[Rfam]
RNA sequence: GUUGAAGUCGCUGGAGGCAGCGGUUCAUCGAUCAAUUCCUGUGAAUAUAAUGAUCUUGUUGGAAACAAUUUACAUGGAAAGCAUGAAUCGAUCGAUAAACCUCUGCAUCCAGUGCUUCUCCU
Numbered sequence: 001g002u003u004g005a006a007g008u009c010g011c012u013g014g015a016g017g018c019a020g021c022g023g024u025u026c027a028u029c030g031a032u033c034a035a036u037u038c039c040u041g042u043g044a045a046u047a048u049a050a051u052g053a054u055c056u057u058g059u060u061g062g063a064a065a066c067a068a069u070u071u072a073c074a075u076g077g078a079a080a081g082c083a084u085g086a087a088u089c090g091a092u093c094g095a096u097a098a099a100c101c102u103c104u105g106c107a108u109c110c111a112g113u114g115c116u117u118c119u120c121c122u
Base pairs, nucleotide, nucleotide: 013110014109015108018105019104020103022101023100024099025098027096028095029094030093031092032091033090036087037086038085
About this RNA:
The record is a 122-nucleotide sequence from Brassica carinata, which matches "MIR162_1 microRNA precursor family" in Rfam. The family's consensus secondary structure was predicted with RNAalifold. The family has 36 seed sequences and 270 matches in Rfam 15.1. Its family is annotated with miRNA-mediated post-transcriptional gene silencing and RISC complex in the Gene Ontology. The family is grouped with related families in Rfam's "MIR167 microRNA precursor clan".